Bacteroidete tryptophan peptide leader RNA: a 122-nucleotide RNA sequence from Gilvibacter sp. SZ-19.
RNA sequence: UAUUUAUCUUUGAAACUCAAAUGAAGCAAAUAAACGUAAAUACUUGGUGGUGGUCAGCUCAAAGCACAAGCUCGUGAGGCUGAUCGUCUGAUUGUAUACGUUAAACAUACCAAAGACUUGUC
Numbered sequence: 001u002a003u004u005u006a007u008c009u010u011u012g013a014a015a016c017u018c019a020a021a022u023g024a025a026g027c028a029a030a031u032a033a034a035c036g037u038a039a040a041u042a043c044u045u046g047g048u049g050g051u052g053g054u055c056a057g058c059u060c061a062a063a064g065c066a067c068a069a070g071c072u073c074g075u076g077a078g079g080c081u082g083a084u085c086g087u088c089u090g091a092u093u094g095u096a097u098a099c100g101u102u103a104a105a106c107a108u109a110c111c112a113a114a115g116a117c118u119u120g121u122c
Stems, first nucleotide, its partner, number of pairs: 036099003040095003049088004055082001057080003063072003